A member of the RNA family "Group II catalytic intron D1-D4-1", 70 nucleotides long.
[Rfam]
RNA sequence: CGAUCUGGUAACAGUGGUUGAAGAGGAAUCAGCCGAUGGCAUAGUAGGGUAUCGACCAUACCUGAAGGCC
Numbered sequence: 001c002g003a004u005c006u007g008g009u010a011a012c013a014g015u016g017g018u019u020g021a022a023g024a025g026g027a028a029u030c031a032g033c034c035g036a037u038g039g040c041a042u043a044g045u046a047g048g049g050u051a052u053c054g055a056c057c058a059u060a061c062c063u064g065a066a067g068g069c070c
Stems, first nucleotide, its partner, number of pairs: 001016002005014003028037003038070003047063006
Dot-bracket structure: ((..(((....)))))...........(((....)))(((......((((((.....))))))....)))
The sequence is in the family's curated seed alignment.